A member of the RNA family "glmS glucosamine-6-phosphate activated ribozyme aptamer" from Megasphaera cerevisiae, 152 nucleotides long. Lineage of the source: Bacteria > Bacillota > Veillonellaceae > Megasphaera > Megasphaera cerevisiae. It scores 83 bits against the family's covariance model. It is annotated as a riboswitch.
RNA sequence: GUAAAAUGGAUAGCGCUAGUACCUAAGGCUCUUAGGUAGACGAGGUAGAGAAGUAUCGAAUAUAUCAGCGGAUGUCUCUCGGCAGCUUCAGUCGUCACAAGGUGGAAAAACAUCACGGUAACGGGAUGGACAACGUCACUAUGGGAAGCAAA
Numbered sequence: 001g002u003a004a005a006a007u008g009g010a011u012a013g014c015g016c017u018a019g020u021a022c023c024u025a026a027g028g029c030u031c032u033u034a035g036g037u038a039g040a041c042g043a044g045g046u047a048g049a050g051a052a053g054u055a056u057c058g059a060a061u062a063u064a065u066c067a068g069c070g071g072a073u074g075u076c077u078c079u080c081g082g083c084a085g086c087u088u089c090a091g092u093c094g095u096c097a098c099a100a101g102g103u104g105g106a107a108a109a110a111c112a113u114c115a116c117g118g119u120a121a122c123g124g125g126a127u128g129g130a131c132a133a134c135g136u137c138a139c140u141a142u143g144g145g146a147a148g149c150a151a152a
Base pairs, nucleotide, nucleotide: 020038021037022036023035024034025033026032027031047079048078049077050076051075056068058066059065080094081093082092083091085089099142101140102139103138104137111128112127113126114125116123117122